[Rfam]
Overview: Shown here is a 93-nucleotide RNA sequence from Cyprinodon variegatus, a member of the family "mir-217 microRNA precursor family". Rfam 15.1 lists 698 matches to the family in 641 species. The source organism's lineage runs through Eukaryota, Gnathostomata, Neopterygii, Euteleosteomorpha and Cyprinodon. On this family, see Lim et al., Science 2003: "Vertebrate microRNA genes".
RNA sequence: AGCUGUCUGAUGCGGAUGGUACUGCAUCAGGAACUGAUUGGCUGAUACUUCACUGCCAACAGUACCUGAUGCAUUGCCCUCAGUAUCAAAGAA
Numbered sequence: 001a002g003c004u005g006u007c008u009g010a011u012g013c014g015g016a017u018g019g020u021a022c023u024g025c026a027u028c029a030g031g032a033a034c035u036g037a038u039u040g041g042c043u044g045a046u047a048c049u050u051c052a053c054u055g056c057c058a059a060c061a062g063u064a065c066c067u068g069a070u071g072c073a074u075u076g077c078c079c080u081c082a083g084u085a086u087c088a089a090a091g092a093a
Base pairs, nucleotide, nucleotide: 023073024072025071026070027069029067030066031065033063034062035061036060039058040057041056